[Rfam]
RNA sequence: AGCUGCGUGGUGAGCACAGAGCGAACUAUUCUUUCGCCUUUUACUAAAGAAUACCGUGUGCUCGCCACAAACUAGCAGCAUACCCUAAUUUUUUUAGGGUGUCCCUAAACAGAAGGACC
Number, nucleotide and partner (000 for none) at each position: 001a000002g000003c078004u077005g076006c075007g000008u067009g066010g065011u064012g063013a062014g061015c060016a059017c058018a057019g000020a000021g000022c000023g000024a000025a000026c000027u053028a052029u051030u050031c049032u048033u047034u046035c000036g000037c000038c000039u000040u000041u000042u000043a000044c000045u000046a034047a033048a032049g031050a030051a029052u028053a027054c000055c000056g000057u018058g017059u016060g015061c014062u013063c012064g011065c010066c009067a008068c000069a000070a000071a000072c000073u000074a000075g006076c005077a004078g003079c000080a000081u000082a000083c000084c000085c000086u000087a000088a000089u000090u000091u000092u000093u000094u000095u000096a000097g000098g000099g000100u000101g118102u117103c116104c115105c000106u113107a000108a000109a000110c000111a000112g000113a106114a000115g104116g103117a102118c101119c000
Record summary
Shown here is a 119-nucleotide RNA from Dichanthelium oligosanthes, a member of the family "U5 spliceosomal RNA". Pairs were carried over by alignment from the consensus structure, which is taken from published work. Rfam's curators write: U5 RNA is a component of both types of known spliceosome. Gene Ontology terms of the family: spliceosomal tri-snRNP complex assembly and U5 snRNP.